[Rfam]
RNA sequence: CUUCAUGAGACGCCGUCGCCAAGCUCCGACUGGACGGCGCGCCAACCCCACGCUCGUGGGUGGCUCGGAUGACGACGUGACCGGCACCGACCGUGCCGGUAAGAGCGCCAC
Numbered sequence: 001c002u003u004c005a006u007g008a009g010a011c012g013c014c015g016u017c018g019c020c021a022a023g024c025u026c027c028g029a030c031u032g033g034a035c036g037g038c039g040c041g042c043c044a045a046c047c048c049c050a051c052g053c054u055c056g057u058g059g060g061u062g063g064c065u066c067g068g069a070u071g072a073c074g075a076c077g078u079g080a081c082c083g084g085c086a087c088c089g090a091c092c093g094u095g096c097c098g099g100u101a102a103g104a105g106c107g108c109c110a111c
Base pairs, nucleotide, nucleotide: 001077003075004074009040012038013037014036015035016034017033022031023030041064042063043062046060047059048058050057051056080100081099082098083097084096085095086094087093
Dot-bracket structure: (.((....(..((((((....((......)).)))))).)(((..(((.((....))))).))).........)).)..((((((((.....))))))))...........